[Rfam]
RNA sequence: CCCGGCAUGACCCCAGCUGGUGCUGGGCGCGGCCUUCAAAGCCGCGGCGGCCGAGAGGCCGAGUGGUCCGAUUCCACCCUGCUGGC
Numbered sequence: 001c002c003c004g005g006c007a008u009g010a011c012c013c014c015a016g017c018u019g020g021u022g023c024u025g026g027g028c029g030c031g032g033c034c035u036u037c038a039a040a041g042c043c044g045c046g047g048c049g050g051c052c053g054a055g056a057g058g059c060c061g062a063g064u065g066g067u068c069c070g071a072u073u074c075c076a077c078c079c080u081g082c083u084g085g086c
Stems, first nucleotide, its partner, number of pairs: 002085006009078001012027006028046006048061005063077004
A member of the RNA family "Selenocysteine transfer RNA" from Monoraphidium neglectum, 86 nucleotides long.
A search with the family's covariance model found it, with a score of 71 bits.
The source organism's lineage runs through Eukaryota, Viridiplantae, Sphaeropleales, Selenastraceae and Monoraphidium.
Rfam 15.1 lists 4,211 matches to the family in 3,344 species.
Pairs were carried over by alignment from the consensus structure, which is taken from published work.
Its Rfam clan is "tRNA clan".